The family of this 53-nucleotide RNA from Amborella trichopoda is "Plastid-atpF group II-D1 intron".
About the family: Plastid atpF is a non-coding RNA (ncRNA) recognised in plastids. It has been reported in the intron group II-D1 region of ATP synthase (atpF) genes.
The family's consensus secondary structure was predicted with LocARNA.
The literature on the family includes a 2023 paper in Plant Commun by Richter et al., "Retrograde signaling in plants: A critical review focusing on the GUN pathway and beyond".
Gene Ontology term of the family: Group II intron splicing.
[Rfam]
RNA sequence: GGUAAUUUAUUCGAUAUAGAACACUCAUAUCGAUAAAAUAAUUUUGAACCAUC
Numbered sequence: 001g002g003u004a005a006u007u008u009a010u011u012c013g014a015u016a017u018a019g020a021a022c023a024c025u026c027a028u029a030u031c032g033a034u035a036a037a038a039u040a041a042u043u044u045u046g047a048a049c050c051a052u053c
Base pairs, nucleotide, nucleotide: 011033012032013031014030015029016028017027